[Rfam]
RNA sequence: GCCAAAUGAUGCAAAUCAAGUGGCAUUAGCACUCUGUGCAAAGAUGACCUUCAUCUAUCACCCUAUACUGAUGGCU
Numbered sequence: 001g002c003c004a005a006a007u008g009a010u011g012c013a014a015a016u017c018a019a020g021u022g023g024c025a026u027u028a029g030c031a032c033u034c035u036g037u038g039c040a041a042a043g044a045u046g047a048c049c050u051u052c053a054u055c056u057a058u059c060a061c062c063c064u065a066u067a068c069u070g071a072u073g074g075c076u
Stems, first nucleotide, its partner, number of pairs: 001075004029039004

The record is a 76-nucleotide RNA sequence from Turnix velox, which matches "Small nucleolar RNA SNORD83" in Rfam. The family's RNA type in Rfam is C/D-box small nucleolar RNA. On this family, see Jady and Kiss, Nucleic Acids Res 2000: "Characterisation of the U83 and U84 small nucleolar RNAs: two novel 2'-O-ribose methylation guide RNAs that lack complementarities to ribosomal RNAs". The match comes from Rfam's covariance-model search (64 bits).